[Rfam]
RNA sequence: UGUGGAUCAAUGAUGUUAUUGAUUUUACUGCGUUAUCUUCCUGCAUCUAACAAUGAAAUGAAGAUAAAUGUUUUACACCCUGAGAUCCAUU
Number, nucleotide and partner (000 for none) at each position: 001u000002g090003u089004g088005g087006a086007u085008c000009a000010a000011u000012g000013a000014u000015g000016u000017u000018a000019u000020u000021g000022a000023u000024u000025u000026u000027a000028c000029u000030g000031c000032g000033u000034u000035a000036u000037c000038u000039u000040c000041c000042u000043g000044c000045a000046u000047c000048u000049a000050a000051c000052a000053a000054u000055g000056a000057a000058a000059u000060g000061a000062a000063g000064a000065u000066a000067a000068a000069u000070g000071u000072u000073u000074u000075a000076c000077a000078c000079c000080c000081u000082g000083a000084g000085a007086u006087c005088c004089a003090u002091u000
Small nucleolar RNA snoR27: a 91-nucleotide RNA from Populus trichocarpa. The family is grouped with related families in Rfam's "snR68 clan". The base pairs follow the family's consensus structure, which was predicted with WAR. The organism belongs to Populus, within Eukaryota.